RNA sequence: GUUUUCCUGUGUGUGGAAGGUUUUCAGCACCAAGGACAUGUGUGUUUGCCUGUGUGUCGAAGAUGCUCAGCACCAAGGACAGGUGAGGUUGCCU
Numbered sequence: 001g002u003u004u005u006c007c008u009g010u011g012u013g014u015g016g017a018a019g020g021u022u023u024u025c026a027g028c029a030c031c032a033a034g035g036a037c038a039u040g041u042g043u044g045u046u047u048g049c050c051u052g053u054g055u056g057u058c059g060a061a062g063a064u065g066c067u068c069a070g071c072a073c074c075a076a077g078g079a080c081a082g083g084u085g086a087g088g089u090u091g092c093c094u
Stems, first nucleotide, its partner, number of pairs: 004085001006083005019074003023070002026067004031062001034055001036053003040049003
mir-2060 microRNA precursor family: a 94-nucleotide RNA sequence from Branchiostoma belcheri. It scores 74 bits against the family's covariance model. The source organism's lineage runs through Eukaryota, Opisthokonta, Eumetazoa, Chordata and Branchiostoma. Rfam 15.1 lists 3,696 matches to the family in 4 species.